[Rfam]
RNA sequence: GAUCUGGUAGUAUGGUAGAAAGAUAUCAAUUUCUUUCUACCAUAUUUUGUAUUAUUGUAUUGUCUAAAGUUGUACUG
Numbered sequence: 001g002a003u004c005u006g007g008u009a010g011u012a013u014g015g016u017a018g019a020a021a022g023a024u025a026u027c028a029a030u031u032u033c034u035u036u037c038u039a040c041c042a043u044a045u046u047u048u049g050u051a052u053u054a055u056u057g058u059a060u061u062g063u064c065u066a067a068a069g070u071u072g073u074a075c076u077g
Stems, first nucleotide, its partner, number of pairs: 009046015
Plastid-psbM 3UTR RNA: a 77-nucleotide RNA sequence from Papaver somniferum. The match comes from Rfam's covariance-model search (59 bits). The source organism's lineage runs through Eukaryota, Spermatophyta, Mesangiospermae, Papaveraceae and Papaver. By type it is a cis-regulatory element. The literature on the family includes a 2023 paper in Plant Commun by Richter et al., "Retrograde signaling in plants: A critical review focusing on the GUN pathway and beyond".